Rfam assigns this 140-nucleotide sequence from Nelumbo nucifera to the family "MIR403 microRNA precursor family". The literature on the family includes a 2009 paper in BMC Genomics by Mica et al., "High throughput approaches reveal splicing of primary microRNA transcripts and tissue specific expression of mature microRNAs in Vitis vinifera". Gene Ontology terms of the family: RISC complex and miRNA-mediated post-transcriptional gene silencing.

RNA sequence: ACAUAUAACAAGCUUCUGCGUGAAUCCAACCCCAUCAAAUCACCGUUGCAUUGCUACAAUAUCGUUAAUUACGAAUCUGGAGCCACUCAGAUUAUUGAAAAAGAUGGUGUUAGAUUCACGCACAAGCUCGCUAUAUGUCU
Numbered sequence: 001a002c003a004u005a006u007a008a009c010a011a012g013c014u015u016c017u018g019c020g021u022g023a024a025u026c027c028a029a030c031c032c033c034a035u036c037a038a039a040u041c042a043c044c045g046u047u048g049c050a051u052u053g054c055u056a057c058a059a060u061a062u063c064g065u066u067a068a069u070u071a072c073g074a075a076u077c078u079g080g081a082g083c084c085a086c087u088c089a090g091a092u093u094a095u096u097g098a099a100a101a102a103g104a105u106g107g108u109g110u111u112a113g114a115u116u117c118a119c120g121c122a123c124a125a126g127c128u129c130g131c132u133a134u135a136u137g138u139c140u
Stems, first nucleotide, its partner, number of pairs: 001138003005134003011128005017122010028111003032107002043097001